[Rfam]
RNA sequence: AAAGAUAACUGAAUACAAGCUCGUAUAAUCAUGGGGAUAUGGCCCAUAAGUUUCUACCGGACGACCAUCGCAAUCGUCCGACUAUGAGUGGGAGCGCCCGCGCG
Numbered sequence: 001a002a003a004g005a006u007a008a009c010u011g012a013a014u015a016c017a018a019g020c021u022c023g024u025a026u027a028a029u030c031a032u033g034g035g036g037a038u039a040u041g042g043c044c045c046a047u048a049a050g051u052u053u054c055u056a057c058c059g060g061a062c063g064a065c066c067a068u069c070g071c072a073a074u075c076g077u078c079c080g081a082c083u084a085u086g087a088g089u090g091g092g093a094g095c096g097c098c099c100g101c102g103c104g
Stems, first nucleotide, its partner, number of pairs: 019089007029049001031047005058080007
Dot-bracket structure: ..................(((((((...(.(((((.......))))).)........(((((((.........)))))))..)))))))...............

The family of this 104-nucleotide RNA from Paenibacillus albicereus is "Purine riboswitch aptamer". The literature on the family includes a 2013 paper in Nature by Reining et al., "Three-state mechanism couples ligand and temperature sensing in riboswitches". Taxonomically the source falls in Paenibacillus (Bacteria, Bacillati, Bacillota, Caryophanales). Riboswitches are metabolite binding domains within certain messenger RNAs that serve as precision sensors for their corresponding targets.